This 84-nucleotide RNA from Paratissierella segnis belongs to the Rfam family "tRNA". Rfam links the family to the GO term triplet codon-amino acid adaptor activity. The family's consensus secondary structure is taken from published work. Rfam classes the family as a transfer RNA. A search with the family's covariance model found it, with a score of 47 bits.

[Rfam]
RNA sequence: GCAGGGGUGGUGGAACUGGUAGACACGAUAGUUUGAGGGGCUAUUGCCUUAAAAAGCGUGAGGGUUCGAGUCCCUUCUCCUGCA
Numbered sequence: 001g002c003a004g005g006g007g008u009g010g011u012g013g014a015a016c017u018g019g020u021a022g023a024c025a026c027g028a029u030a031g032u033u034u035g036a037g038g039g040g041c042u043a044u045u046g047c048c049u050u051a052a053a054a055a056g057c058g059u060g061a062g063g064g065u066u067c068g069a070g071u072c073c074c075u076u077c078u079c080c081u082g083c084a
Stems, first nucleotide, its partner, number of pairs: 001083007010026003028044005060076005